A member of the RNA family "EGFOA RNA" from Baekduia soli, 108 nucleotides long.

RNA sequence: CCAUCCCCGGAAGUACCGUCCCAGUCCGCUUACGCGGAGGCAGGCGGGGUGAACGUCGCUGGAGCGACUGCGUGGUAAAGCUGGACCCGGGCGCGCCCCACACCCCGU
Numbered sequence: 001c002c003a004u005c006c007c008c009g010g011a012a013g014u015a016c017c018g019u020c021c022c023a024g025u026c027c028g029c030u031u032a033c034g035c036g037g038a039g040g041c042a043g044g045c046g047g048g049g050u051g052a053a054c055g056u057c058g059c060u061g062g063a064g065c066g067a068c069u070g071c072g073u074g075g076u077a078a079a080g081c082u083g084g085a086c087c088c089g090g091g092c093g094c095g096c097c098c099c100a101c102a103c104c105c106c107g108u
Base pairs, nucleotide, nucleotide: 006091007090008089009088010087018086019085021084022083023082024081025038026037027036028035029034044108045107046106047105048104049103050102051101055068056067057066058065059064070096071095072094073093074092
Overview:
The family's RNA type in Rfam is small RNA. The match comes from Rfam's covariance-model search (72 bits).